Description:
The record is an 88-nucleotide RNA sequence from Hibiscus syriacus, which matches "mir-393 microRNA precursor family" in Rfam. A reference for the family is Kruszka et al. (2012), "Role of microRNAs and other sRNAs of plants in their changing environments", J Plant Physiol. A search with the family's covariance model found it, with a score of 83 bits.
RNA sequence: AGAGUAGGUAUCCAAAGGGAUCGCAUUGAUCCUUUUCGUUUUUUACCCUUUCUUCCUUGGAUCAUGCGAUCCCUUUGGAUUCCUCCUU
Number, nucleotide and partner (000 for none) at each position: 001a000002g088003a087004g086005u000006a084007g000008g082009u000010a080011u079012c078013c077014a076015a075016a074017g073018g072019g071020a070021u069022c000023g067024c066025a065026u064027u000028g063029a062030u061031c060032c059033u000034u000035u000036u000037c000038g000039u000040u000041u000042u000043u000044u000045a000046c000047c000048c000049u000050u000051u000052c000053u000054u000055c000056c000057u000058u000059g032060g031061a030062u029063c028064a026065u025066g024067c023068g000069a021070u020071c019072c018073c017074u016075u015076u014077g013078g012079a011080u010081u000082c008083c000084u006085c000086c004087u003088u002